[Rfam]
RNA sequence: GGCCUUCCAGUGCUUACCAUGAGCUGUGUUCUUACACCGCCUAUACAGAAAGAGGAGGCAGAGUAAACCCACUCCAUAUACACCUCAGCCCAGGCCCUCUGCCUGGUCUGUAUUAUGAAUGGAGGGACAUGG
Number, nucleotide and partner (000 for none) at each position: 001g000002g059003c058004c057005u056006u055007c054008c000009a000010g000011u000012g000013c000014u000015u000016a000017c000018c000019a000020u043021g042022a000023g000024c000025u000026g037027u036028g035029u034030u000031c000032u000033u000034a029035c028036a027037c026038c000039g000040c000041c000042u021043a020044u000045a000046c000047a000048g000049a000050a000051a000052g000053a000054g007055g006056a005057g004058g003059c002060a000061g000062a000063g000064u000065a000066a000067a000068c000069c000070c000071a000072c124073u123074c122075c121076a120077u119078a000079u000080a000081c000082a000083c000084c000085u000086c110087a109088g108089c000090c106091c105092a104093g103094g102095c101096c000097c000098u000099c000100u000101g095102c094103c093104u092105g091106g090107u000108c088109u087110g086111u000112a000113u000114u000115a000116u000117g000118a000119a077120u076121g075122g074123a073124g072125g000126g000127a000128c000129a000130u000131g000132g000

The record is a 132-nucleotide RNA from Phyllostomus discolor, which matches "Small nucleolar RNA SNORA51" in Rfam. It scores 133 bits against the family's covariance model. Lineage of the source: Eukaryota > Bilateria > Laurasiatheria > Yangochiroptera > Phyllostomus. Pairs were carried over by alignment from the consensus structure, which was predicted with PFOLD. ACA51 is a member of the H/ACA class of snoRNA that guide the sites of modification of uridines to pseudouridines. By type it is an H/ACA-box small nucleolar RNA. The family has 9 seed sequences and 2,121 matches in Rfam 15.1.